[Rfam]
RNA: Small nucleolar RNA SNORD113/SNORD114 family
Nucleotides: 075
Stems, first nucleotide, its partner, number of pairs: 002073004
Number, partner (000 for none) and nucleotide at each position: 001000u002073g003072g004071a005070u006000a007000a008000a009000u010000g011000a012000u013000g014000a015000c016000a017000a018000g019000g020000g021000g022000u023000g024000g025000c026000a027000u028000a029000c030000g031000g032000g033000u034000c035000u036000u037000g038000g039000a040000u041000g042000a043000u044000g045000a046000a047000c048000a049000c050000c051000a052000c053000a054000g055000g056000u057000c058000u059000u060000c061000a062000a063000c064000u065000c066000u067000g068000g069000g070005g071004u072003c073002c074000a075000a